[Rfam]
RNA sequence: GGAUAGUGCUCCUAAUUAUUCUGUCUUUAUCUCACUCAUAGCAAGCACA
Numbered sequence: 001g002g003a004u005a006g007u008g009c010u011c012c013u014a015a016u017u018a019u020u021c022u023g024u025c026u027u028u029a030u031c032u033c034a035c036u037c038a039u040a041g042c043a044a045g046c047a048c049a
Base pairs, nucleotide, nucleotide: 006048007047008046009045010044
Shown here is a 49-nucleotide RNA from Ananas comosus, a member of the family "Plastid-rpoB 5UTR RNA".
The family's RNA type in Rfam is cis-regulatory element.
The organism belongs to Ananas, within Eukaryota.
It scores 45 bits against the family's covariance model.
About the family: Plastid rpoB is a non-coding RNA (ncRNA) recognised in plastids. It was found in the 5 prime untranslated region (5UTR) of a chloroplast-encoded RNA polymerase subunit (rpoB) in plastids, suggesting a posible cis-regulatory function.